[Rfam]
RNA sequence: GCCGGAAAAAGGGGGUGCCUCCGUGGGGGCGGCUGAGAUUAUACCCAAUGAACCUGAUACGGUCAAUACCGUCGUAGGGAUUUUUUCUGAGUAUAUU
Numbered sequence: 001g002c003c004g005g006a007a008a009a010a011g012g013g014g015g016u017g018c019c020u021c022c023g024u025g026g027g028g029g030c031g032g033c034u035g036a037g038a039u040u041a042u043a044c045c046c047a048a049u050g051a052a053c054c055u056g057a058u059a060c061g062g063u064c065a066a067u068a069c070c071g072u073c074g075u076a077g078g079g080a081u082u083u084u085u086u087c088u089g090a091g092u093a094u095a096u097u
Base pairs, nucleotide, nucleotide: 006085007084008083009082010081012046013045014044016041017033018032019031021029053078054077055076056075059072060071061070062069